[Rfam]
RNA sequence: AAAAAAAAUGGGCUCACGCCCAUCUUCUUGCCGGUGGUCGCACCUGAGCCGCACAGAUAAAAAACCGCACGCCCAGCGACUCCGAGAGUUUAGCAUUUU
Numbered sequence: 001a002a003a004a005a006a007a008a009u010g011g012g013c014u015c016a017c018g019c020c021c022a023u024c025u026u027c028u029u030g031c032c033g034g035u036g037g038u039c040g041c042a043c044c045u046g047a048g049c050c051g052c053a054c055a056g057a058u059a060a061a062a063a064a065c066c067g068c069a070c071g072c073c074c075a076g077c078g079a080c081u082c083c084g085a086g087a088g089u090u091u092a093g094c095a096u097u098u099u
Stems, first nucleotide, its partner, number of pairs: 008023006036089001038087002041084001046082003050078003

About this RNA:
Shown here is a 99-nucleotide sequence from Trinickia caryophylli, a member of the family "Burkholderia sRNA Bp1_Cand612_SIPHT". For this family Rfam cites "Computational discovery and RT-PCR validation of novel Burkholderia conserved and Burkholderia pseudomallei unique sRNAs" (Khoo et al., BMC Genomics, 2012). The base pairs follow the family's consensus structure, which was predicted with RNAalifold. The organism belongs to Trinickia, within Bacteria.